[Rfam]
The family of this 74-nucleotide sequence from Sipha flava is "mir-965 microRNA precursor family". Rfam 15.1 lists 224 matches to the family in 178 species. The source organism's lineage runs through Eukaryota, Ecdysozoa, Hexapoda, Chaitophorinae and Sipha. Gene Ontology terms of the family: miRNA-mediated post-transcriptional gene silencing and RISC complex.
RNA sequence: GCCGAAAGAGGAAAAGUUAUAACGGUUAUGUUCAUAAAUAACAGUCGUAAGCGUAUAGCUUUUCCCCUUUUAGU
Number, nucleotide and partner (000 for none) at each position: 001g000002c000003c000004g071005a070006a069007a068008g000009a000010g065011g064012a000013a062014a061015a000016g000017u058018u057019a056020u055021a054022a000023c000024g000025g000026u050027u049028a048029u047030g046031u000032u000033c000034a000035u000036a000037a000038a000039u000040a000041a000042c000043a000044g000045u000046c030047g029048u028049a027050a026051g000052c000053g000054u021055a020056u019057a018058g017059c000060u000061u014062u013063u000064c011065c010066c000067c000068u007069u006070u005071u004072a000073g000074u000
About this RNA: The family's consensus secondary structure was predicted with RNAalifold.